[Rfam]
RNA sequence: GGGAGUAGGUCUCCUGAAGCCGGCUUGCGGGAGCAGGCUUCAAACCGCCCGGUGCUGCUGCGUUCAAAAGGCGUGGUGGUGAGCGACCGGGGAAAAGUCACCCACCAGGAUGGCAGGU
Dot-bracket structure: (((((.....)))))((((((.((((....)))).))))))....(.((((((((.(((.((((.....)))).))).)).....)))))).....((((.(......).))))..).
Group II catalytic intron D1-D4-2: a 118-nucleotide RNA from Paraburkholderia humisilvae.
For this family Rfam cites "The ins and outs of group II introns" (Bonen and Vogel, Trends Genet, 2001).
About the family: Group II introns are found in rRNA, tRNA and mRNA of organelles in fungi, plants and protists, and also in mRNA in bacteria.
The source organism's lineage runs through Bacteria, Pseudomonadati, Pseudomonadota, Burkholderiales and Paraburkholderia.
Its family is annotated with Group II intron splicing in the Gene Ontology.